The family of this 173-nucleotide RNA sequence from Cohnella luojiensis is "Group II catalytic intron D1-D4-3".

RNA sequence: UCGACCAAGAGGUCGAAUCUGAAGGAAGUCGGCGGCAAACCUCCGGUUCGAGGAACACGAAUCUCAUAUAAGGCUAAUGCUCGUUGGAUGAGACUGCUAGAGAAGUCGAAGUCCUUACUGCCGAAGGCGAGUGGGAGUAAAUGAGGCGAAUAGAUGGAGGGAAAGAUAACGCU
Numbered sequence: 001u002c003g004a005c006c007a008a009g010a011g012g013u014c015g016a017a018u019c020u021g022a023a024g025g026a027a028g029u030c031g032g033c034g035g036c037a038a039a040c041c042u043c044c045g046g047u048u049c050g051a052g053g054a055a056c057a058c059g060a061a062u063c064u065c066a067u068a069u070a071a072g073g074c075u076a077a078u079g080c081u082c083g084u085u086g087g088a089u090g091a092g093a094c095u096g097c098u099a100g101a102g103a104a105g106u107c108g109a110a111g112u113c114c115u116u117a118c119u120g121c122c123g124a125a126g127g128c129g130a131g132u133g134g135g136a137g138u139a140a141a142u143g144a145g146g147c148g149a150a151u152a153g154a155u156g157g158a159g160g161g162a163a164a165g166a167u168a169a170c171g172c173u
Stems, first nucleotide, its partner, number of pairs: 001016006028173001030171002036165001040160006046151005062146006073138003079132006086114004092107004
On this family, see Bonen and Vogel, Trends Genet 2001: "The ins and outs of group II introns".